Shown here is a 137-nucleotide RNA sequence from Clostridium grantii, a member of the family "Group II catalytic intron D1-D4-4".
Rfam describes the family as follows. Group II introns are found in rRNA, tRNA and mRNA of organelles in fungi, plants and protists, and also in mRNA in bacteria.
The source organism's lineage runs through Bacteria, Bacillati, Eubacteriales, Clostridiaceae and Clostridium grantii.
Pairs were carried over by alignment from the consensus structure.
Its family is annotated with Group II intron splicing in the Gene Ontology.
RNA sequence: UAGCUGGCGAAAGUCCAGUAAAGGUAAUCGUCAAGGAGCCUUUUAGCUAUCCACUAUGCAUAUAAGAGAUUAUAUGUUUAAAGUGUGGUGACAAAGUGUUCGGAAGAAUGCGAGCAAAAGUAUAGGUUGUAAUAUAA
Number, nucleotide and partner (000 for none) at each position: 001u000002a000003g000004c000005u000006g000007g000008c000009g000010a000011a000012a000013g000014u000015c000016c000017a000018g000019u000020a043021a042022a041023g040024g039025u000026a000027a000028u000029c000030g000031u000032c000033a000034a000035g000036g000037a000038g000039c024040c023041u022042u021043u020044u000045a000046g000047c000048u000049a000050u000051c088052c087053a086054c085055u080056a079057u000058g077059c076060a075061u000062a000063u000064a071065a070066g000067a000068g000069a000070u065071u064072a000073u000074a000075u060076g059077u058078u000079u056080a055081a000082a000083g000084u000085g054086u053087g052088g051089u000090g000091a000092c000093a000094a000095a000096g111097u110098g109099u108100u107101c106102g000103g000104a000105a000106g101107a100108a099109u098110g097111c096112g000113a000114g130115c129116a128117a000118a000119a000120g000121u000122a000123u000124a000125g000126g000127u000128u116129g115130u114131a000132a000133u000134a000135u000136a000137a000